[Rfam]
RNA sequence: UGCAGAUGAUGAUAGAUCUUUCUGCUGUGUAGAGAAGUGUGAUGACAACCACCAAGAUCGCUGAUGCA
Numbered sequence: 001u002g003c004a005g006a007u008g009a010u011g012a013u014a015g016a017u018c019u020u021u022c023u024g025c026u027g028u029g030u031a032g033a034g035a036a037g038u039g040u041g042a043u044g045a046c047a048a049c050c051a052c053c054a055a056g057a058u059c060g061c062u063g064a065u066g067c068a
Stems, first nucleotide, its partner, number of pairs: 001068004
The record is a 68-nucleotide RNA sequence from Erpornis zantholeuca, which matches "Small nucleolar RNA SNORD24" in Rfam. Taxonomically the source falls in Erpornis (Eukaryota, Metazoa, Teleostomi, Tetrapoda). On this family, see Nicoloso et al., J Mol Biol 1996: "Intron-encoded, antisense small nucleolar RNAs: the characterization of nine novel species points to their direct role as guides for the 2'-O-ribose methylation of rRNAs".